[Rfam]
RNA sequence: UUUGACGUAAAUUGAUUUAUGUUUGGAUACACAUAUAAAAGUGAUUAUCAUGAGUUGAUGUUGUUUGGAUAG
Numbered sequence: 001u002u003u004g005a006c007g008u009a010a011a012u013u014g015a016u017u018u019a020u021g022u023u024u025g026g027a028u029a030c031a032c033a034u035a036u037a038a039a040a041g042u043g044a045u046u047a048u049c050a051u052g053a054g055u056u057g058a059u060g061u062u063g064u065u066u067g068g069a070u071a072g
Stems, first nucleotide, its partner, number of pairs: 011059008021051002026046003030043003034039001

The record is a 72-nucleotide sequence from Medicago truncatula, which matches "MIR5272 microRNA precursor family" in Rfam. The source organism's lineage runs through Eukaryota, Streptophytina, Euphyllophyta, Fabaceae and Medicago. The family has 6 seed sequences and 271 matches in Rfam 15.1. The match comes from Rfam's covariance-model search (69 bits).